[Rfam]
RNA sequence: GUGAAACCGUUGAUUAAGAGUAAGUAGUCGUAUGGGAUGUUUUUCAGAGAGUUGUCGGUUGGUGUGAGACAACAAACUAACAGCGAUGAAUGGACUUAAGAGGGCAGCUUGAAACCACAUUAUUAGGUAGUAGACGCUGACGGAGACUCACCGUUAAAAGAGUAAGCAUAUGAUGGUAUGCUGUUGAGAGAAUGUGUUAUACAUUAAUUUGGGUGGCACCGCAGAAGUUGAAUUUAUAAGGCUUUUGUCCCUUUA
Numbered sequence: 001g002u003g004a005a006a007c008c009g010u011u012g013a014u015u016a017a018g019a020g021u022a023a024g025u026a027g028u029c030g031u032a033u034g035g036g037a038u039g040u041u042u043u044u045c046a047g048a049g050a051g052u053u054g055u056c057g058g059u060u061g062g063u064g065u066g067a068g069a070c071a072a073c074a075a076a077c078u079a080a081c082a083g084c085g086a087u088g089a090a091u092g093g094a095c096u097u098a099a100g101a102g103g104g105c106a107g108c109u110u111g112a113a114a115c116c117a118c119a120u121u122a123u124u125a126g127g128u129a130g131u132a133g134a135c136g137c138u139g140a141c142g143g144a145g146a147c148u149c150a151c152c153g154u155u156a157a158a159a160g161a162g163u164a165a166g167c168a169u170a171u172g173a174u175g176g177u178a179u180g181c182u183g184u185u186g187a188g189a190g191a192a193u194g195u196g197u198u199a200u201a202c203a204u205u206a207a208u209u210u211g212g213g214u215g216g217c218a219c220c221g222c223a224g225a226a227g228u229u230g231a232a233u234u235u236a237u238a239a240g241g242c243u244u245u246u247g248u249c250c251c252u253u254u255a
Stems, first nucleotide, its partner, number of pairs: 007103002015098004027087005040076003051073006105139004110134001141153003191205006211251003221248009
RNA: T-box leader